A member of the RNA family "U12 minor spliceosomal RNA" from Psylliodes chrysocephalus, 158 nucleotides long. Lineage of the source: Eukaryota > Opisthokonta > Mandibulata > Chrysomelidae > Psylliodes. Rfam classes the family as a spliceosomal small nuclear RNA. Pairs were carried over by alignment from the consensus structure.
RNA sequence: GUGCCUUAAACUAAUGAGUAAGGAAAAUAUACGAGCCCUGGUAACGCUUGGCUUACAUACUGGAUAGAUUUCUAGUCUGUGAAUUUUUGCAGGGAUACAGGUCGUCCCGUGGAUGGCGGCUAUACUUCAGUCACCGUUCUGGUGUAGCGAUCUGCCCC
Dot-bracket structure: ...(((((..........))))).........(((((..(......)..)))))....(((((........)))))...............(((.(..(((((((..(..(((((..((((.......))))..)))))..)....)))))))).)))